This 96-nucleotide RNA sequence from Physcomitrium patens belongs to the Rfam family "Small nucleolar RNA Z43". The base pairs follow the family's consensus structure, which was predicted with PFOLD. Rfam links the family to the GO terms RNA processing and nucleolus. The family has 7 seed sequences and 859 matches in Rfam 15.1.

[Rfam]
RNA sequence: GGACAAUGACGACAUACAGAAAGGUCUCGUUCGGCAUACUGGUCCACAGCCCAUGCUGACUAUUCUGAUAAGAUCAUCACCCAUAGUCUGAUGUCC
Numbered sequence: 001g002g003a004c005a006a007u008g009a010c011g012a013c014a015u016a017c018a019g020a021a022a023g024g025u026c027u028c029g030u031u032c033g034g035c036a037u038a039c040u041g042g043u044c045c046a047c048a049g050c051c052c053a054u055g056c057u058g059a060c061u062a063u064u065c066u067g068a069u070a071a072g073a074u075c076a077u078c079a080c081c082c083a084u085a086g087u088c089u090g091a092u093g094u095c096c
Stems, first nucleotide, its partner, number of pairs: 001096004046054001